Rfam assigns this 46-nucleotide sequence to the family "RAGATH-25 RNA". Rfam's curators put it in the seed alignment.

RNA sequence: UUUAAAACUAGAAGUUCUUCUAAAGCAUAUCUUCCUUAUCAGGAAA
Numbered sequence: 001u002u003u004a005a006a007a008c009u010a011g012a013a014g015u016u017c018u019u020c021u022a023a024a025g026c027a028u029a030u031c032u033u034c035c036u037u038a039u040c041a042g043g044a045a046a
Stems, first nucleotide, its partner, number of pairs: 009022005032045004